The record is a 144-nucleotide sequence from Sorghum bicolor, which matches "Small nucleolar RNA snoR136" in Rfam. The match comes from Rfam's covariance-model search (53 bits). Gene Ontology terms of the family: RNA processing and nucleolus. A reference for the family is Chen and Wu (2009), "Mining small RNA sequencing data: a new approach to identify small nucleolar RNAs in Arabidopsis", Nucleic Acids Res.
[Rfam]
RNA sequence: UUUGUUCCGCUUCUCUUGGUUCAUGCCCAUGAGCUGUUUUUGGUUCAUGAGCUUUGGAAAGGUGAAGCAAAAGUCUCAGUGGUUCCUCUCGCUAUCCAGGGCAGAUUUCUGUUUGAUGCUGCUGGACGUCGAGGAACUACAUUC
Dot-bracket structure: (((((..(((((..((.((.....((.((((((((......)))))))).)))).)).))).))..))).)).........(((((((.((...(((((.....(........).......)))))))..))))))).......